[Rfam]
RNA sequence: UUCUUAUCCAGAGAGGUGGAGGGACUGGCCCUUUGAAACCUCGGCAGCGGGUUUUAUGUAUUUCGCAUAAAACACUGUGCCAAUUCCAGCAAAUGCAAUGUUUGAAAGAUGAGAA
Numbered sequence: 001u002u003c004u005u006a007u008c009c010a011g012a013g014a015g016g017u018g019g020a021g022g023g024a025c026u027g028g029c030c031c032u033u034u035g036a037a038a039c040c041u042c043g044g045c046a047g048c049g050g051g052u053u054u055u056a057u058g059u060a061u062u063u064c065g066c067a068u069a070a071a072a073c074a075c076u077g078u079g080c081c082a083a084u085u086c087c088a089g090c091a092a093a094u095g096c097a098a099u100g101u102u103u104g105a106a107a108g109a110u111g112a113g114a115a
Base pairs, nucleotide, nucleotide: 001115002114003113004112005111006110007109008108013042014041015040016039017038021031022030023029025089026088027087028086043081044080045079046078048077049076050073052071053070085107090104091103092102093101094100095099
RNA: SAM riboswitch aptamer (S box leader)